Xanthomonas sRNA sX9: a 78-nucleotide RNA from Xanthomonas albilineans. Rfam classes the family as a small RNA. The family's consensus secondary structure was predicted with RNAalifold.

RNA sequence: AUUUACCGCCUCUGUACACUGCGGUUCCUGCGCGGUGUCCGCACCCGCCCGACAGCGACUGGCGACGUUUUGUUGGCC
Numbered sequence: 001a002u003u004u005a006c007c008g009c010c011u012c013u014g015u016a017c018a019c020u021g022c023g024g025u026u027c028c029u030g031c032g033c034g035g036u037g038u039c040c041g042c043a044c045c046c047g048c049c050c051g052a053c054a055g056c057g058a059c060u061g062g063c064g065a066c067g068u069u070u071u072g073u074u075g076g077c078c
Base pairs, nucleotide, nucleotide: 002018004016005015006014022037023036025034027032049076050075051074052073053072054071055070